[Rfam]
RNA: TPP riboswitch aptamer (THI element)
Organism: Streptohalobacillus salinus
RNA sequence: AACAUCCGCUAGGGGCGCCGUGUAGUUGCUGAGAUAAAGCUUAGGCUUUGGUCCCUUUGAACCUGAUUUGGUUAAUACCAGCGUAGGGAAGCGGAGCAGGUGACCU
Numbered sequence: 001a002a003c004a005u006c007c008g009c010u011a012g013g014g015g016c017g018c019c020g021u022g023u024a025g026u027u028g029c030u031g032a033g034a035u036a037a038a039g040c041u042u043a044g045g046c047u048u049u050g051g052u053c054c055c056u057u058u059g060a061a062c063c064u065g066a067u068u069u070g071g072u073u074a075a076u077a078c079c080a081g082c083g084u085a086g087g088g089a090a091g092c093g094g095a096g097c098a099g100g101u102g103a104c105c106u
Base pairs, nucleotide, nucleotide: 006094007093008092009091010090011056012055013054014053016050017029018028020026021025036049037048038047039046040045062087063086064085065084068081069080070079071078